Rfam assigns this 141-nucleotide RNA sequence from Exiguobacterium artemiae to the family "FMN riboswitch aptamer (RFN element)".

[Rfam]
RNA sequence: UUCCAUCUUCAGGGCAGGGUGAAAUUCCCGACCGGCGGUAAACAGGCGAUUCGCCUGAAGCCCGCGAGCGAAUAGGGCGCUAUUUGCUGAUUCUGUGUAACUCAGGAGCCGACAGUAUAGUCUGGAUGGGAGAAGAUGGCG
Numbered sequence: 001u002u003c004c005a006u007c008u009u010c011a012g013g014g015c016a017g018g019g020u021g022a023a024a025u026u027c028c029c030g031a032c033c034g035g036c037g038g039u040a041a042a043c044a045g046g047c048g049a050u051u052c053g054c055c056u057g058a059a060g061c062c063c064g065c066g067a068g069c070g071a072a073u074a075g076g077g078c079g080c081u082a083u084u085u086g087c088u089g090a091u092u093c094u095g096u097g098u099a100a101c102u103c104a105g106g107a108g109c110c111g112a113c114a115g116u117a118u119a120g121u122c123u124g125g126a127u128g129g130g131a132g133a134a135g136a137u138g139g140c141g
Base pairs, nucleotide, nucleotide: 003139004138005137006136007135008134009133010132017029018028019027031121032120033111034110035065036064037063038062060109061108068087069086070085091107092106093105094104095103113124114123115122

The family has 146 seed sequences and 6,230 matches in Rfam 15.1.